Rfam assigns this 97-nucleotide sequence from Miscanthus lutarioriparius to the family "mir-399 microRNA precursor family". The source organism's lineage runs through Eukaryota, Streptophytina, Euphyllophyta, Petrosaviidae and Miscanthus. The family has 13 seed sequences and 2,396 matches in Rfam 15.1. About the family: mir-399 was identified in both Arabidopsis thaliana and Oryza sativa computationally and was later experimentally verified. mir-399 is thought to target mRNAs coding for a phosphatase transporter. The mature sequence is excised from the 3' arm of the hairpin. A reference for the family is Jones-Rhoades and Bartel (2004), "Computational Identification of Plant MicroRNAs and Their Targets, Including a Stress-Induced miRNA", Mol Cell. A search with the family's covariance model found it, with a score of 68 bits.
RNA sequence: CCAUGCAUUACCGGGUGGGUCUCCUCUGGCAGUAACUUGGCUGGUCGAUGACCUGCGGGCAGACACUGCCAAAGGAGAUUUGCCCAGCAAUGCAGUU
Numbered sequence: 001c002c003a004u005g006c007a008u009u010a011c012c013g014g015g016u017g018g019g020u021c022u023c024c025u026c027u028g029g030c031a032g033u034a035a036c037u038u039g040g041c042u043g044g045u046c047g048a049u050g051a052c053c054u055g056c057g058g059g060c061a062g063a064c065a066c067u068g069c070c071a072a073a074g075g076a077g078a079u080u081u082g083c084c085c086a087g088c089a090a091u092g093c094a095g096u097u
Stems, first nucleotide, its partner, number of pairs: 005093005011087001013085007021077004027071007